RNA sequence: GGGGAACGAGUGUAGCCCACCUCCUCGUGGUGUUCCCCGGGCAACGGUGCAAUCGCAGGAUUGCAGCGGCAAAGAAGCUACU
Numbered sequence: 001g002g003g004g005a006a007c008g009a010g011u012g013u014a015g016c017c018c019a020c021c022u023c024c025u026c027g028u029g030g031u032g033u034u035c036c037c038c039g040g041g042c043a044a045c046g047g048u049g050c051a052a053u054c055g056c057a058g059g060a061u062u063g064c065a066g067c068g069g070c071a072a073a074g075a076a077g078c079u080a081c082u
Base pairs, nucleotide, nucleotide: 001038002037003036004035005034006033007032019031020030021029045068046067048065049064050063051062052061053060054059
The family of this 82-nucleotide RNA from Araneus ventricosus is "HDV ribozyme from F. prausnitzii". The family has 48 seed sequences and 3,803 matches in Rfam 15.1. For this family Rfam cites "Widespread occurrence of self-cleaving ribozymes" (Webb et al., Science, 2009). Gene Ontology term of the family: catalytic activity.